Glycine riboswitch aptamer: an 87-nucleotide RNA from Salipiger mucosus.

RNA sequence: UGCAACGCGAUGGGAGAACCGGCAGCCGCCGGUGCCGAAGGAGCAACCGCCCCGGAAACUCUCAGGCCCAUGGACCACCGCGGACCG
Numbered sequence: 001u002g003c004a005a006c007g008c009g010a011u012g013g014g015a016g017a018a019c020c021g022g023c024a025g026c027c028g029c030c031g032g033u034g035c036c037g038a039a040g041g042a043g044c045a046a047c048c049g050c051c052c053c054g055g056a057a058a059c060u061c062u063c064a065g066g067c068c069c070a071u072g073g074a075c076c077a078c079c080g081c082g083g084a085c086c087g
Base pairs, nucleotide, nucleotide: 006082007081008080009079011077012076013075019032020031021030022029034067035066036065037063038062041061042060043059047055048054
The organism belongs to Salipiger mucosus, within Bacteria. The pairing is the family consensus, mapped onto this sequence.